Betacoronavirus 3'UTR: a 317-nucleotide RNA from Betacoronavirus hongkongense. The 3' UTR of betacoronaviruses is approximately 300-500 nucleotides long. The most 5' structure is the bulged stem-loop (BSL), starting downstream of the N gene stop codon and is essential for viral replication. It is predicted to be conserved among betacoronaviruses. Gene Ontology term of the family: viral RNA genome replication. Its Rfam clan is "Coronavirus 3' UTR". A search with the family's covariance model found it, with a score of 211 bits. The family's RNA type in Rfam is cis-regulatory element. The pairing is the family consensus, mapped onto this sequence.
RNA sequence: CUUGAUGAUCCUUAUGUAGAAGACUCUGUUGCUUAAUGAGAAUGAAUCCUAAUUCGACACUAGGUGGUAACCCCUCGCUAUUAGUCGGAAUAGGACACUCUCUAUCAGAAUGAAUUCUUGCUGUUACAACAGAUAGAGUAGGUUGUUGCAGACUAUAUAUUAAUUAGUAGAAACUUUAUAUUUAAAUAUUUGAUUGUUAGAGUAGUUAUAAGGUUUAGCUGUAGUAUAAACGCCUCCGGGAAGAGCUAGCAAUUAUAGUAUUUAAUAUAUCUAUUAGUAUAUGAUUGAAAUUAAUUAUAGCCUUUUGGAGGAAUUAC
Dot-bracket structure: .....................................((((.((..(((((..((((...(((..((......))..)))....))))..))))))).))))..........(((((((.((((.(((((...........))))).)))).......(((((((....(..(....(((.............(((((((............(((((((....)).))))).((....)).....)))))))...............)))....)..)..........))))))).....((....)))))))))..